Rfam assigns this 32-nucleotide RNA from Rubeoparvulum massiliense to the family "L31-Firmicutes ribosomal protein leader". The family is grouped with related families in Rfam's "Ribosomal Protein L31 Leader clan". The sequence is in the family's curated seed alignment. By type it is a cis-regulatory leader. The literature on the family includes a 2020 paper in BMC Microbiol by Eckert and Weinberg, "Discovery of 20 novel ribosomal leader candidates in bacteria and archaea". The source organism's lineage runs through Bacteria, Bacilli, Caryophanales, Bacillaceae and Rubeoparvulum.
RNA sequence: CUCUGUUUCGUCUCGAUUCAGGGCAAAGUGAG
Numbered sequence: 001c002u003c004u005g006u007u008u009c010g011u012c013u014c015g016a017u018u019c020a021g022g023g024c025a026a027a028g029u030g031a032g
Stems, first nucleotide, its partner, number of pairs: 001023005008016003
The base pairs follow the family's consensus structure, which is taken from published work.